[Rfam]
RNA sequence: AGUCUAAAGCGUUCGUAGCUGGUUUGGAUAGUUGGUGCUUAAAUCUUUUCGUUUAACGGAAAGGCACGGUAUAAAUACUUCUAGACUAGAGGCCGGGAGGGGAGAUGGGAACUUUUCGGGUAGGAGUAAAAUCCUUUAAUCCGAAAAAGACCACCAAUAGCGAAGGCACAUCUCCAGAACGGACCUGACGGUGAGGGACGAAGGCUAGGAGAACAAACCGGAUUAGAUACCCGGGUAGCCCUAGCAGUAAACGCUGCUUACUAUACGUUGCAUUUCCUUGAGGAAAUGCAGUGUGACAGCGAAGGCGUUAAGUAAGCCACUUGGGGAGUAUAAUCGCAAGGUCGAAACUUAAAGGAAU
Numbered sequence: 001a002g003u004c005u006a007a008a009g010c011g012u013u014c015g016u017a018g019c020u021g022g023u024u025u026g027g028a029u030a031g032u033u034g035g036u037g038c039u040u041a042a043a044u045c046u047u048u049u050c051g052u053u054u055a056a057c058g059g060a061a062a063g064g065c066a067c068g069g070u071a072u073a074a075a076u077a078c079u080u081c082u083a084g085a086c087u088a089g090a091g092g093c094c095g096g097g098a099g100g101g102g103a104g105a106u107g108g109g110a111a112c113u114u115u116u117c118g119g120g121u122a123g124g125a126g127u128a129a130a131a132u133c134c135u136u137u138a139a140u141c142c143g144a145a146a147a148a149g150a151c152c153a154c155c156a157a158u159a160g161c162g163a164a165g166g167c168a169c170a171u172c173u174c175c176a177g178a179a180c181g182g183a184c185c186u187g188a189c190g191g192u193g194a195g196g197g198a199c200g201a202a203g204g205c206u207a208g209g210a211g212a213a214c215a216a217a218c219c220g221g222a223u224u225a226g227a228u229a230c231c232c233g234g235g236u237a238g239c240c241c242u243a244g245c246a247g248u249a250a251a252c253g254c255u256g257c258u259u260a261c262u263a264u265a266c267g268u269u270g271c272a273u274u275u276c277c278u279u280g281a282g283g284a285a286a287u288g289c290a291g292u293g294u295g296a297c298a299g300c301g302a303a304g305g306c307g308u309u310a311a312g313u314a315a316g317c318c319a320c321u322u323g324g325g326g327a328g329u330a331u332a333a334u335c336g337c338a339a340g341g342u343c344g345a346a347a348c349u350u351a352a353a354g355g356a357a358u
Stems, first nucleotide, its partner, number of pairs: 001321003009318001011199004016193001018192003022086007030079002032075002035072005045063007090186003093182003101175007108152002113147007123134003160167002204245006214238001218234004256317006264295014299306002323350003333342003
A member of the RNA family "Archaeal small subunit ribosomal RNA" from Candidatus Parvarchaeum acidiphilum, 358 nucleotides of a longer RNA.
The literature on the family includes a 2001 paper in Science by Yusupov et al., "Crystal structure of the ribosome at 5.5 A resolution".